The record is a 115-nucleotide RNA sequence from Cohnella lupini, which matches "Guanidine-I riboswitch aptamer" in Rfam.

Nucleotides: 115
Base pairs, nucleotide, nucleotide: 007063008062009061010060011059012058015053016052020050021049022047023044024043025042026041027040065087066086067085068084069083070082090110092113096108097107098106
Number, partner (000 for none) and nucleotide at each position: 001000a002000a003000u004000u005000a006000g007063g008062c009061u010060u011059u012058c013000u014000a015053g016052g017000g018000u019000u020050c021049c022047a023044c024043g025042g026041u027040a028000a029000c030000g031000c032000c033000g034000u035000u036000c037000g038000c039000g040027u041026a042025c043024c044023g045000g046000u047022u048000c049021g050020g051000u052016c053015c054000g055000a056000g057000a058012g059011g060010a061009a062008g063007c064000g065087c066086a067085u068084c069083u070082u071000g072000g073000c074000g075000a076000u077000a078000u079000g080000c081000g082070a083069g084068g085067a086066u087065g088000g089000a090110c091000a092113c093000g094000g095000c096108g097107g098106g099000a100000u101000a102000a103000a104000a105000a106098c107097c108096c109000g110090g111000g112000a113092g114000u115000a

The source organism's lineage runs through Bacteria, Bacillati, Bacillota, Caryophanales and Cohnella.